Rfam assigns this 161-nucleotide RNA from Lupinus angustifolius to the family "U1 spliceosomal RNA". Taxonomically the source falls in Lupinus (Eukaryota, Streptophyta, fabids, genistoids sensu lato). Rfam links the family to the GO terms pre-mRNA 5'-splice site binding, U1 snRNP and mRNA 5'-splice site recognition. The family's RNA type in Rfam is spliceosomal small nuclear RNA.
RNA sequence: AUACUUACCUCGAUGGGGUCAAUGGGUGAUCAAGAAGGCCCAUGGCCUAGAGUAGUGACCUCCAUUGCACUUAGGAGGGGUGCUAUCCUAAAGUCUACCGAAAUGGUGGAGCCUACGUUGUAAUUUGUAGUAGUAGGGGCAUGGGUUUGCGCAACCCCUAU
Numbered sequence: 001a002u003a004c005u006u007a008c009c010u011c012g013a014u015g016g017g018g019u020c021a022a023u024g025g026g027u028g029a030u031c032a033a034g035a036a037g038g039c040c041c042a043u044g045g046c047c048u049a050g051a052g053u054a055g056u057g058a059c060c061u062c063c064a065u066u067g068c069a070c071u072u073a074g075g076a077g078g079g080g081u082g083c084u085a086u087c088c089u090a091a092a093g094u095c096u097a098c099c100g101a102a103a104u105g106g107u108g109g110a111g112c113c114u115a116c117g118u119u120g121u122a123a124u125u126u127g128u129a130g131u132a133g134u135a136g137g138g139g140c141a142u143g144g145g146u147u148u149g150c151g152c153a154a155c156c157c158c159u160a161u
Stems, first nucleotide, its partner, number of pairs: 012119004016048006023042005049089002055083003059079003062075002091114001093112001094110003098106002134160005142153002145150001
The family has 100 seed sequences and 40,184 matches in Rfam 15.1.
Its Rfam clan is "U1 clan".
The match comes from Rfam's covariance-model search (118 bits).